Y RNA-like: a 126-nucleotide RNA sequence from Cardiobacterium valvarum.
About the family: In Deinococcus radiodurans Rsr is tethered via Y RNA to the exoribonuclease PNPase and channels single-stranded RNA into the PNPase cavity. Rsr and Y RNA enhance degradation of structured RNAs by PNPase. This role could be conserved, as Rsr and ncRNAs called YrlA and YrlB (Y RNA like) also associate with PNPase in an evolutionary distant bacterium Salmonella Typhimurium.
Rfam 15.1 lists 124 matches to the family in 99 species.
The literature on the family includes a 2013 paper in Cell by Chen et al., "An RNA degradation machine sculpted by Ro autoantigen and noncoding RNA".
Nucleotides: 126
Stems, first nucleotide, its partner, number of pairs: 002122006013108007023097001031096002038054005055074008077093004
Number, partner (000 for none) and nucleotide at each position: 001000g002122c003121g004120c005119c006118g007117a008000a009000u010000g011000c012000g013108c014107g015106g016105g017104a018103a019102a020000c021000u022000a023097c024000a025000g026000a027000a028000a029000a030000a031096c032095a033000a034000g035000g036000u037000c038054g039053c040052g041051g042050g043000u044000u045000c046000g047000a048000g049000u050042c051041c052040c053039g054038c055074c056073c057072c058071g059070u060069u061068g062067g063000c064000c065000c066000g067062c068061c069060a070059a071058c072057g073056g074055g075000u076000a077093g078092u079091u080090c081000a082000g083000u084000u085000g086000g087000a088000u089000a090080g091079a092078a093077c094000a095032u096031g097023g098000a099000g100000c101000g102019u103018u104017u105016c106015c107014c108013g109000c110000a111000a112000c113000c114000u115000c116000g117007u118006c119005g120004g121003c122002g123000c124000g125000g126000c